[Rfam]
Rfam assigns this 80-nucleotide RNA from Eubacterium aggregans to the family "S10-Clostridia ribosomal protein leader". Pairs were carried over by alignment from the consensus structure, which is taken from published work. Rfam classes the family as a cis-regulatory leader. A search with the family's covariance model found it, with a score of 36 bits.
RNA sequence: UUAGAGCGAUGAUUUAAGAAGUUGCUGUUACUAAUUCAGGUAAUUCUUGAGGAGCGAGUUUUGGCCGUAGAGCCAGACGA
Numbered sequence: 001u002u003a004g005a006g007c008g009a010u011g012a013u014u015u016a017a018g019a020a021g022u023u024g025c026u027g028u029u030a031c032u033a034a035u036u037c038a039g040g041u042a043a044u045u046c047u048u049g050a051g052g053a054g055c056g057a058g059u060u061u062u063g064g065c066c067g068u069a070g071a072g073c074c075a076g077a078c079g080a
Stems, first nucleotide, its partner, number of pairs: 014050003018046003025039003058078003062075004